[Rfam]
RNA sequence: GCCGGCCCGCCUAAGCAGCGGGCUGUCACCGUGCUUGCGGGGCAUGUGGGUGGAGGGAUUGGUGGCGUGCGUAGACGAGCGAGGGUUUAGGCCCACGCCGAAGGCCGCUGCCCCAUUCCAGAAGGAGACUCGACAUUGUGGCCCUCUCGGAGGGGAGGGCUUCAAGGUCGAUGAUGAGCGUCGCACCGCCUCAGGCUGGUUGACAGAGCAGGGAAAAGACGCCGGUCCCCUUGGUGGAGGGAUCACAGCCCUGAGUGGGUCCUCUCGGGAAGCUGCGUAUCGACUCCAACACCUCCACUUUU
Numbered sequence: 001g002c003c004g005g006c007c008c009g010c011c012u013a014a015g016c017a018g019c020g021g022g023c024u025g026u027c028a029c030c031g032u033g034c035u036u037g038c039g040g041g042g043c044a045u046g047u048g049g050g051u052g053g054a055g056g057g058a059u060u061g062g063u064g065g066c067g068u069g070c071g072u073a074g075a076c077g078a079g080c081g082a083g084g085g086u087u088u089a090g091g092c093c094c095a096c097g098c099c100g101a102a103g104g105c106c107g108c109u110g111c112c113c114c115a116u117u118c119c120a121g122a123a124g125g126a127g128a129c130u131c132g133a134c135a136u137u138g139u140g141g142c143c144c145u146c147u148c149g150g151a152g153g154g155g156a157g158g159g160c161u162u163c164a165a166g167g168u169c170g171a172u173g174a175u176g177a178g179c180g181u182c183g184c185a186c187c188g189c190c191u192c193a194g195g196c197u198g199g200u201u202g203a204c205a206g207a208g209c210a211g212g213g214a215a216a217a218g219a220c221g222c223c224g225g226u227c228c229c230c231u232u233g234g235u236g237g238a239g240g241g242a243u244c245a246c247a248g249c250c251c252u253g254a255g256u257g258g259g260u261c262c263u264c265u266c267g268g269g270a271a272g273c274u275g276c277g278u279a280u281c282g283a284c285u286c287c288a289a290c291a292c293c294u295c296c297a298c299u300u301u302u
Stems, first nucleotide, its partner, number of pairs: 001043003004024007029040003048300009060289001062287001064285002067280008083266002090260001092259005098253001102252003107249004113241002116239005122232004127227004131170004136165003140161009171175001178222005189213003196206003
RNA: Metazoan signal recognition particle RNA